RNA: c-di-GMP-I riboswitch aptamer
Organism: Halalkalibacter wakoensis
RNA sequence: AUAAUGGGGAGGCAAAACUAAUGAAAAUAGAGACGCAAAGUUACAGACCUAAGUUGUUGCUAAGGUGGCUGAUUUGCUGUG
Number, nucleotide and partner (000 for none) at each position: 001a000002u000003a000004a000005u000006g000007g000008g000009g000010a000011g000012g036013c035014a000015a000016a000017a000018c030019u029020a028021a000022u027023g000024a000025a000026a000027a022028u020029a019030g018031a000032g000033a000034c000035g013036c012037a000038a000039a075040g074041u000042u072043a000044c071045a070046g069047a066048c065049c064050u000051a000052a000053g000054u000055u059056g000057u000058u000059g055060c000061u000062a000063a000064g049065g048066u047067g000068g000069c046070u045071g044072a042073u000074u040075u039076g000077c000078u000079g000080u000081g000